[Rfam]
Nucleotides: 265
Base pairs, nucleotide, nucleotide: 002265003264004263005262006261007260008259009258010257011256014215015214016213017212018211019210022070023068024067025066026065027064028063037053038052039051040050041049042048043047074251075250076249078248079247080246081245097109098108099107100106110123111122112121113120126187127186128185132182133181134180135179136178137177138176139175140174217235218234219233220232221231222230
Number, partner (000 for none) and nucleotide at each position: 001000g002265g003264u004263u005262g006261c007260u008259g009258u010257c011256a012000a013000a014215a015214a016213u017212c018211a019210c020000g021000g022070c023068u024067a025066a026065g027064c028063g029000c030000a031000c032000a033000c034000a035000c036000u037053g038052a039051u040050c041049c042048u043047u044000u045000g046000u047043g048042a049041g050040g051039a052038u053037c054000g055000c056000u057000c058000a059000c060000g061000a062000a063028c064027g065026c066025u067024u068023a069000g070022g071000g072000g073000a074251a075250a076249g077000u078248c079247u080246c081245c082000g083000a084000g085000c086000c087000u088000a089000c090000u091000u092000a093000a094000a095000a096000g097109c098108c099107u100106a101000g102000a103000a104000a105000g106100u107099a108098g109097g110123g111122c112121c113120c114000u115000u116000g117000a118000c119000u120113g121112g122111g123110u124000g125000g126187g127186u128185c129000a130000c131000u132182c133181c134180u135179c136178g137177c138176a139175c140174u141000g142000g143000c144000g145000a146000u147000a148000a149000u150000g151000a152000g153000c154000g155000c156000g157000a158000g159000c160000u161000c162000u163000a164000g165000c166000c167000a168000c169000c170000c171000c172000g173000a174140a175139g176138u177137g178136c179135g180134g181133g182132g183000a184000u185128g186127a187126c188000u189000u190000u191000u192000c193000u194000g195000c196000u197000a198000u199000a200000c201000c202000a203000a204000a205000g206000u207000u208000a209000u210019g211018u212017g213016a214015u215014u216000g217235g218234c219233g220232g221231c222230u223000c224000u225000c226000a227000c228000c229000g230222a231221g232220c233219u234218g235217c236000u237000a238000a239000c240000a241000g242000a243000a244000u245081g246080g247079a248078g249076c250075u251074u252000a253000c254000u255000c256011u257010g258009g259008c260007g261006g262005c263004a264003a265002c
Notes
The family of this 265-nucleotide RNA sequence from Halteria grandinella is "RNase MRP". The family's RNA type in Rfam is ribozyme. The source organism's lineage runs through Eukaryota, Sar, Sporadotrichida, Halteriidae and Halteria. About the family: RNase MRP is an enzymatically active ribonucleoprotein with two distinct roles in eukaryotes. In mitochondria it plays a direct role in the initiation of mitochondrial DNA replication. In the nucleus it is involved in precursor rRNA processing, where it cleaves the internal transcribed spacer 1 between 18S and 5.8S rRNAs. Despite distinct functions, RNase MRP has been shown to be evolutionarily related to RNase P. Like eukaryotic RNase P, RNase MRP is not catalytically active without associated protein subunits. The match comes from Rfam's covariance-model search (110 bits). Clan: RNaseP clan.